This 111-nucleotide RNA from Citrobacter sp. JGM124 belongs to the Rfam family "TPP riboswitch aptamer (THI element)".
RNA sequence: UCAUUCUUGUCGGAGUGCCGAGUGUGUAAUGCACCGGCUGAGACCGUUAAUUCGGGAUCCGCGGAACCUGAUCAGGUUAAUACCUGCGAAGGGAACAAGAGUAACUAUGUG
Numbered sequence: 001u002c003a004u005u006c007u008u009g010u011c012g013g014a015g016u017g018c019c020g021a022g023u024g025u026g027u028a029a030u031g032c033a034c035c036g037g038c039u040g041a042g043a044c045c046g047u048u049a050a051u052u053c054g055g056g057a058u059c060c061g062c063g064g065a066a067c068c069u070g071a072u073c074a075g076g077u078u079a080a081u082a083c084c085u086g087c088g089a090a091g092g093g094a095a096c097a098a099g100a101g102u103a104a105c106u107a108u109g110u111g
Stems, first nucleotide, its partner, number of pairs: 006099005011061004016055001017038004045054002067092003073086004